RNA sequence: AGACUCUGGAAAGCCAAAUGGCACCGAAGAAGCAAUCUCAAUUUGAGAGAAUCUUUCAGGUUAAUAGACAGAGGCGUAAAG
Numbered sequence: 001a002g003a004c005u006c007u008g009g010a011a012a013g014c015c016a017a018a019u020g021g022c023a024c025c026g027a028a029g030a031a032g033c034a035a036u037c038u039c040a041a042u043u044u045g046a047g048a049g050a051a052u053c054u055u056u057c058a059g060g061u062u063a064a065u066a067g068a069c070a071g072a073g074g075c076g077u078a079a080a081g
Base pairs, nucleotide, nucleotide: 002075004073005072006071007070008069014021015020023061024060025059026057027056030055031054032053036048037047038046039045
This 81-nucleotide RNA from a Vallitaleaceae bacterium belongs to the Rfam family "Glycine riboswitch aptamer". Rfam's curators write: This family represents the bacterial glycine riboswitch. A search with the family's covariance model found it, with a score of 43 bits.